Shown here is an 88-nucleotide sequence from Merluccius polli, a member of the family "mir-7 microRNA precursor family".
From the family's description: This family represents the microRNA (miRNA) precursor mir-7.
A search with the family's covariance model found it, with a score of 62 bits.
The family has 132 seed sequences and 2,589 matches in Rfam 15.1.
Pairs were carried over by alignment from the consensus structure, which was predicted with PFOLD.
[Rfam]
RNA sequence: AGGUCGACUGCAGCAUGGAAGACUAGUGAUUUUGUUGUUCUGUAAAUAAACCGACAACAAGUCAUUGUCUUCCUUGUGGCUUUGAGGC
Number, nucleotide and partner (000 for none) at each position: 001a000002g000003g000004u085005c084006g083007a000008c000009u000010g000011c079012a000013g077014c076015a075016u000017g073018g072019a000020a070021g069022a068023c067024u000025a000026g065027u064028g063029a062030u061031u060032u059033u000034g058035u057036u056037g055038u054039u053040c000041u000042g000043u000044a000045a000046a000047u000048a000049a000050a000051c000052c000053g039054a038055c037056a036057a035058c034059a032060a031061g030062u029063c028064a027065u026066u000067g023068u022069c021070u020071u000072c018073c017074u000075u015076g014077u013078g000079g011080c000081u000082u000083u006084g005085a004086g000087g000088c000